[Rfam]
RNA sequence: UUCCGCUCUCCAGCUCCGUGCGAGAUGUUCGUGCUCGAUGCGGCGUUUCAAUGAGCGAAAACUAGUGAAGAUCGACGAUUAUUGAUAUUUCUUCGUGGAAUAUCGAUCACUAAAGGCUUCGCACAACG
Number, nucleotide and partner (000 for none) at each position: 001u000002u000003c000004c057005g056006c055007u054008c053009u000010c000011c000012a047013g046014c045015u000016c043017c042018g041019u040020g039021c000022g000023a000024g000025a035026u000027g000028u000029u000030c000031g000032u000033g000034c000035u025036c000037g000038a000039u020040g019041c018042g017043g016044c000045g014046u013047u012048u000049c000050a000051a000052u000053g008054a007055g006056c005057g004058a000059a000060a000061a000062c000063u000064a000065g000066u000067g000068a000069a000070g000071a000072u000073c000074g000075a000076c000077g000078a000079u000080u000081a107082u106083u105084g104085a000086u102087a101088u100089u000090u099091c098092u097093u000094c000095g000096u000097g092098g091099a090100a088101u087102a086103u000104c084105g083106a082107u081108c000109a000110c000111u000112a000113a000114a000115g000116g000117c000118u000119u000120c000121g000122c000123a000124c000125a000126a000127c000128g000
The record is a 128-nucleotide RNA from Ancylostoma ceylanicum, which matches "Nematode snoRNA ceN36-1" in Rfam. By type it is an H/ACA-box small nucleolar RNA. The base pairs follow the family's consensus structure, which was predicted with RNAalifold. Taxonomically the source falls in Ancylostoma (Eukaryota, Eumetazoa, Ecdysozoa, Rhabditida).